The record is a 282-nucleotide RNA from Fusarium gaditjirri, which matches "A. fumigatus sRNA Afu_309" in Rfam. The match comes from Rfam's covariance-model search (134 bits).
RNA sequence: UUUCUUUAAGCAAACACGGAUCUGUGCCUAGCGAUCCUCUGCUCUUCAGAGUCAGGGUCGAUUGCUUUGCAGCUCGAUAACUUAUAAGGAGCCAUCAACUUGUUAUGGUGUCAAUCAUCCUAUCGACAGGUCCAAGAGUAACUGUUGCUUCAGCCGCUUCAUUCGCCGUCGAAAGAUGGCUUGAGUGUCGUGGUUGUUGCAUAACGAGACGCUAUAUUCCACCCCCCUUUUCCGAGACCGUCGGUCGGUGAGGUUGGGGAAAACCAUGGCCUACCUACAUAU
Numbered sequence: 001u002u003u004c005u006u007u008a009a010g011c012a013a014a015c016a017c018g019g020a021u022c023u024g025u026g027c028c029u030a031g032c033g034a035u036c037c038u039c040u041g042c043u044c045u046u047c048a049g050a051g052u053c054a055g056g057g058u059c060g061a062u063u064g065c066u067u068u069g070c071a072g073c074u075c076g077a078u079a080a081c082u083u084a085u086a087a088g089g090a091g092c093c094a095u096c097a098a099c100u101u102g103u104u105a106u107g108g109u110g111u112c113a114a115u116c117a118u119c120c121u122a123u124c125g126a127c128a129g130g131u132c133c134a135a136g137a138g139u140a141a142c143u144g145u146u147g148c149u150u151c152a153g154c155c156g157c158u159u160c161a162u163u164c165g166c167c168g169u170c171g172a173a174a175g176a177u178g179g180c181u182u183g184a185g186u187g188u189c190g191u192g193g194u195u196g197u198u199g200c201a202u203a204a205c206g207a208g209a210c211g212c213u214a215u216a217u218u219c220c221a222c223c224c225c226c227c228u229u230u231u232c233c234g235a236g237a238c239c240g241u242c243g244g245u246c247g248g249u250g251a252g253g254u255u256g257g258g259g260a261a262a263a264c265c266a267u268g269g270c271c272u273a274c275c276u277a278c279a280u281a282u
Base pairs, nucleotide, nucleotide: 018133019132020131021130022129023128024127025126026070027069030066031065033063034062035061036060037057038056039055040054041053042051043050044049078125080123083122084121088112089111091109092108093107144205145204146203150201151196152195153194154193155192158185159184160183161182165180166179167178168177169176170175208275211270212269213268214267215266224259225258226257227256232253233252236246237245238244239243
Background: Lineage of the source: Eukaryota > Opisthokonta > Fungi > Hypocreales > Fusarium nisikadoi species complex.